[Rfam]
RNA sequence: AUGGGGACAUGGCAUAAAGCUGGGAGGAGACUCAUAACUAAGGUUCUCGACUUGAACUGAUUUGCAUCUCAUUUU
Numbered sequence: 001a002u003g004g005g006g007a008c009a010u011g012g013c014a015u016a017a018a019g020c021u022g023g024g025a026g027g028a029g030a031c032u033c034a035u036a037a038c039u040a041a042g043g044u045u046c047u048c049g050a051c052u053u054g055a056a057c058u059g060a061u062u063u064g065c066a067u068c069u070c071a072u073u074u075u
Stems, first nucleotide, its partner, number of pairs: 004070004010022004023065001025063002
Dot-bracket structure: ...((((..((((.....))))(.((...................................)).).)))).....
The family of this 75-nucleotide RNA from Indicator maculatus is "ctgf/hcs24 CAESAR". The 3' UTR of human connective tissue growth factor/hypertrophic chondrocyte specific 24 (ctgf/hcs24) mRNA has been shown to repress ctgf gene expression. Reference identified a minimal RNA element, predicted to form a stable secondary structure, which acts as a post-transcriptional cis-acting element of structure-anchored repression (CAESAR), probably through direct interactions with as yet unknown nuclear factors. Rfam links the family to the GO term negative regulation of gene expression. The match comes from Rfam's covariance-model search (56 bits). Rfam classes the family as a cis-regulatory element.